[Rfam]
RNA sequence: GCUGAGCGUUGUAGCGGGGGCUUAUAACCUGAGUAGGGGCUUUAAAGUGAUGGCACGUUGACAAGGUCGGGUUCUGUAUGGCUCUUAUCUGGCCCGCCCGAUCCGAGCCAGGAGUUGAGCCAAGGCAUCCUAGUAAAGACCUGGGUGUCGUGGCUCCUAGAGGUGGAGGGUACAGCGUGAGGCUGGUUUCAUAGAGCAGCGAUUACCUCCCGCUCAUGGCAGUGGAAGGAUUACGGGCCGGUACCAUCUGGAUCCGUAUAGCCAGAUGGGCUGGUCCUAAUUGAACCAUCACUUUU
Numbered sequence: 001g002c003u004g005a006g007c008g009u010u011g012u013a014g015c016g017g018g019g020g021c022u023u024a025u026a027a028c029c030u031g032a033g034u035a036g037g038g039g040c041u042u043u044a045a046a047g048u049g050a051u052g053g054c055a056c057g058u059u060g061a062c063a064a065g066g067u068c069g070g071g072u073u074c075u076g077u078a079u080g081g082c083u084c085u086u087a088u089c090u091g092g093c094c095c096g097c098c099c100g101a102u103c104c105g106a107g108c109c110a111g112g113a114g115u116u117g118a119g120c121c122a123a124g125g126c127a128u129c130c131u132a133g134u135a136a137a138g139a140c141c142u143g144g145g146u147g148u149c150g151u152g153g154c155u156c157c158u159a160g161a162g163g164u165g166g167a168g169g170g171u172a173c174a175g176c177g178u179g180a181g182g183c184u185g186g187u188u189u190c191a192u193a194g195a196g197c198a199g200c201g202a203u204u205a206c207c208u209c210c211c212g213c214u215c216a217u218g219g220c221a222g223u224g225g226a227a228g229g230a231u232u233a234c235g236g237g238c239c240g241g242u243a244c245c246a247u248c249u250g251g252a253u254c255c256g257u258a259u260a261g262c263c264a265g266a267u268g269g270g271c272u273g274g275u276c277c278u279a280a281u282u283g284a285a286c287c288a289u290c291a292c293u294u295u296u
Base pairs, nucleotide, nucleotide: 001040002039003038004023005022006021007020009018010017028037029036030035044295045294046293047292048291049290050289051288052287053286056283057282058280059279060278061275062274064272065271066263068261069255070254071253072252073251074250076248078247079246080245081244083243089241090240091239092238093237094236095235096234098229099228102226103225104224105223107220108219109218110217112215113214114213115212117156118155119154120153121152122151124149125148126147127146128145129144130143133140134139157162165210166209167208168207169206174203176201177200178199183194184193185192

The record is a 296-nucleotide sequence from Populus tomentosa, which matches "Plant signal recognition particle RNA" in Rfam. It is annotated as a non-coding RNA gene. The source organism's lineage runs through Eukaryota, eudicotyledons, Malpighiales, Saliceae and Populus. Clan: SRP clan.